[Rfam]
RNA sequence: UUCUUCUUUGAUACGAAUGCCUUCUAUUCACUGCACCAUUUACUUAUCAAUGAAUGAGUGGAGGGGAAAAGAAUGCUAGAACAAACCUUUCGACAACGUCCUCAUACUAAGUAUGCGACAAUUAAAAGGCAUUAUCUUGGAUUCUGCGUUUUCGAAAUAUUU
Numbered sequence: 001u002u003c004u005u006c007u008u009u010g011a012u013a014c015g016a017a018u019g020c021c022u023u024c025u026a027u028u029c030a031c032u033g034c035a036c037c038a039u040u041u042a043c044u045u046a047u048c049a050a051u052g053a054a055u056g057a058g059u060g061g062a063g064g065g066g067a068a069a070a071g072a073a074u075g076c077u078a079g080a081a082c083a084a085a086c087c088u089u090u091c092g093a094c095a096a097c098g099u100c101c102u103c104a105u106a107c108u109a110a111g112u113a114u115g116c117g118a119c120a121a122u123u124a125a126a127a128g129g130c131a132u133u134a135u136c137u138u139g140g141a142u143u144c145u146g147c148g149u150u151u152u153c154g155a156a157a158u159a160u161u162u
Base pairs, nucleotide, nucleotide: 019076020075022073023072031063032062034060035059037056038055039054040053041052089156090155091154092153093152096149097148098147107140108139109138111136
Shown here is a 162-nucleotide RNA from Spathaspora passalidarum, a member of the family "Small nucleolar RNA snR8". Its family is annotated with RNA processing and nucleolus in the Gene Ontology. Rfam classes the family as an H/ACA-box small nucleolar RNA. The family's consensus secondary structure was predicted with WAR. The organism belongs to Spathaspora passalidarum, within Eukaryota. It scores 114 bits against the family's covariance model.